A member of the RNA family "MIR535 microRNA precursor family" from Vitis vinifera, 96 nucleotides long. A reference for the family is Zeng et al. (2010), "Conservation and divergence of microRNAs and their functions in Euphorbiaceous plants", Nucleic Acids Res.
RNA sequence: AAGAUUGUAUGACAGCGAGAGAAAGCACACCUGUACAUAGUCAUGUUACCUCACAUGAAUGCUAACAAGUGUGCUCUCUCUCUUUGUCAAGCAAUU
Numbered sequence: 001a002a003g004a005u006u007g008u009a010u011g012a013c014a015g016c017g018a019g020a021g022a023a024a025g026c027a028c029a030c031c032u033g034u035a036c037a038u039a040g041u042c043a044u045g046u047u048a049c050c051u052c053a054c055a056u057g058a059a060u061g062c063u064a065a066c067a068a069g070u071g072u073g074c075u076c077u078c079u080c081u082c083u084u085u086g087u088c089a090a091g092c093a094a095u096u
Base pairs, nucleotide, nucleotide: 010089011088012087013086014085017082020079021078025074026073027072028071029070030069032067033066034065
Background
Pairs were carried over by alignment from the consensus structure, which was predicted with RNAalifold. A search with the family's covariance model found it, with a score of 65 bits. Rfam 15.1 lists 544 matches to the family in 108 species.